Rfam assigns this 85-nucleotide RNA from Actinomyces urogenitalis to the family "SAM riboswitch aptamer (S box leader)".

[Rfam]
RNA sequence: CAUCCAUCCAGAGCGGCUGAGAGACCUGGCUCUAUGACGCCGCAGCAACCCUCACGCGGGGUGCUUCCGCCAGGAUCGAUGGAGA
Numbered sequence: 001c002a003u004c005c006a007u008c009c010a011g012a013g014c015g016g017c018u019g020a021g022a023g024a025c026c027u028g029g030c031u032c033u034a035u036g037a038c039g040c041c042g043c044a045g046c047a048a049c050c051c052u053c054a055c056g057c058g059g060g061g062u063g064c065u066u067c068c069g070c071c072a073g074g075a076u077c078g079a080u081g082g083a084g085a
Stems, first nucleotide, its partner, number of pairs: 003083006013043005021032003026073004044065004049061002051058001069077001
Its family is annotated with regulation of gene expression in the Gene Ontology.